[Rfam]
RNA sequence: GAGCACCUGAAUCUUUCCCAUUCCUUGCUGCCUCGUGCCGGUGUGGGGACAGAUGGUGCUACAGAAUGAGCAGAGGAAAUCCAGACAGGUUGUUUUCCAUUUGUCUUGGGGCCUGUCUCUACAGCUCUGCCACAUUU
Dot-bracket structure: ..(((((.......(((((((.((...............)).))))))).....)))))..........((((((.......((((((((......(((.......))).))))))))......)))))).......
Small nucleolar RNA SNORA55: a 137-nucleotide sequence.
It is one of the family's seed sequences.